The record is a 119-nucleotide RNA sequence from Microlunatus soli, which matches "mraW RNA" in Rfam.
Taxonomically the source falls in Microlunatus (Bacteria, Bacillati, Actinomycetota, Propionibacteriales).
Rfam classes the family as a cis-regulatory element.
It scores 56 bits against the family's covariance model.
[Rfam]
Nucleotides: 119
Stems, first nucleotide, its partner, number of pairs: 010106007018098002021095008031086006037073001038071003042067008
Number, partner (000 for none) and nucleotide at each position: 001000c002000a003000c004000g005000g006000c007000u008000c009000g010106u011105g012104u013103c014102u015101u016100c017000a018098g019097g020000c021095u022094u023093c024092a025091g026090c027089c028088c029000u030000g031086g032085g033084a034083u035082c036081u037073g038071a039070c040069u041000c042067c043066c044065u045064g046063g047062c048061g049060c050000a051000a052000c053000u054000u055000c056000c057000c058000c059000g060049g061048c062047g063046c064045c065044a066043g067042g068000u069040a070039g071038u072000a073037c074000u075000u076000c077000c078000c079000g080000c081036a082035g083034a084033u085032c086031c087000a088028g089027g090026g091025c092024u093023g094022a095021a096000a097019c098018c099000c100016g101015a102014g103013g104012a105011c106010a107000c108000g109000a110000a111000c112000c113000g114000u115000g116000c117000u118000c119000g